[Rfam]
RNA sequence: GCCACAUUCCAUUUUAGUUCCUUGCCUUUGCAGAUCCGUGGCCAAUCUACGUCAAAGGCUGAUUAACCCGUAAGGAGCAGUAAUG
Numbered sequence: 001g002c003c004a005c006a007u008u009c010c011a012u013u014u015u016a017g018u019u020c021c022u023u024g025c026c027u028u029u030g031c032a033g034a035u036c037c038g039u040g041g042c043c044a045a046u047c048u049a050c051g052u053c054a055a056a057g058g059c060u061g062a063u064u065a066a067c068c069c070g071u072a073a074g075g076a077g078c079a080g081u082a083a084u085g
Stems, first nucleotide, its partner, number of pairs: 017078007024059006032048003

This 85-nucleotide RNA sequence from Parahaemophilus pittmaniae belongs to the Rfam family "RpsF leader". Conserved and widely distributed to many bacterial species RNA structure. It precedes operon containing rpsF, which encodes ribosomal protein S6. The motif also precedes operon containing rpsR, which encodes ribosomal protein S18. The RNA was shown to interact with S6:S18 protein dimer in vitro. Pairs were carried over by alignment from the consensus structure. Rfam links the family to the GO terms protein binding and negative regulation of translation. A search with the family's covariance model found it, with a score of 40 bits. The literature on the family includes a 2014 paper in RNA by Fu et al., "Bacterial RNA motif in the 5' UTR of rpsF interacts with an S6:S18 complex".